[Rfam]
A member of the RNA family "Purine riboswitch aptamer" from Paenibacillus sp. FSL R7-0331, 112 nucleotides long. A search with the family's covariance model found it, with a score of 38 bits.
RNA sequence: CUAAUAACACUAAUAUUUUCUCGUAUAACCCCGCAGCCGUUAAGGCAUGGAUAGGGCGGGGGUUUCUACAGGAAGCCUAUUCUUCCUAACUACGAUGAUAAAGACCCGCCUA
Numbered sequence: 001c002u003a004a005u006a007a008c009a010c011u012a013a014u015a016u017u018u019u020c021u022c023g024u025a026u027a028a029c030c031c032c033g034c035a036g037c038c039g040u041u042a043a044g045g046c047a048u049g050g051a052u053a054g055g056g057c058g059g060g061g062g063u064u065u066c067u068a069c070a071g072g073a074a075g076c077c078u079a080u081u082c083u084u085c086c087u088a089a090c091u092a093c094g095a096u097g098a099u100a101a102a103g104a105c106c107c108g109c110c111u112a
Base pairs, nucleotide, nucleotide: 018098019097021095022094023093024092025091029061030060031059032058033057034056070087071086072085073084074083075082
Dot-bracket structure: .................((.(((((...((((((.....................))))))........((((((......))))))...))))).))..............